Rfam assigns this 126-nucleotide RNA from Phyllostomus discolor to the family "Small Cajal body specific RNA 15". Its Rfam clan is "SCARNA4 clan". A search with the family's covariance model found it, with a score of 86 bits.
RNA sequence: GUGGAGACUAAGAAAGUAGAGUCCUGGAAGUGGAGCCAACUCAGCUUUCAGCCCCCUCAAUAAAAAGGUAGAUAGGGCAGGUCUUGUUUACAAAAUUCAUUCAAGACCUGCUUACUGCCAACAGCA
Numbered sequence: 001g002u003g004g005a006g007a008c009u010a011a012g013a014a015a016g017u018a019g020a021g022u023c024c025u026g027g028a029a030g031u032g033g034a035g036c037c038a039a040c041u042c043a044g045c046u047u048u049c050a051g052c053c054c055c056c057u058c059a060a061u062a063a064a065a066a067g068g069u070a071g072a073u074a075g076g077g078c079a080g081g082u083c084u085u086g087u088u089u090a091c092a093a094a095a096u097u098c099a100u101u102c103a104a105g106a107c108c109u110g111c112u113u114a115c116u117g118c119c120a121a122c123a124g125c126a
Base pairs, nucleotide, nucleotide: 003056004055006053008051009050011048017044019042020041021040022039024035025034067119068118069117070116071115073114074113079109080108081107082106083105084104085103086102
scaRNAs are a specific class of small nuclear RNAs which localise to the Cajal bodies and guide the modification of RNA polymerase II transcribed spliceosomal RNAs U1, U2, U4, U5 and U12. ACA45 belongs to the H/ACA box class of guide RNAs as it has the predicted hairpin-hinge-hairpin-tail structure, the conserved H/ACA-box motifs and is found associated with GAR1. ACA45 is predicted to guide the pseudouridylation of residue U37 of the U2 spliceosomal snRNA.
For this family Rfam cites "Cajal body-specific small nuclear RNAs: a novel class of 2'-O-methylation and pseudouridylation guide RNAs" (Darzacq et al., EMBO J, 2002).
Rfam classes the family as a small Cajal body RNA.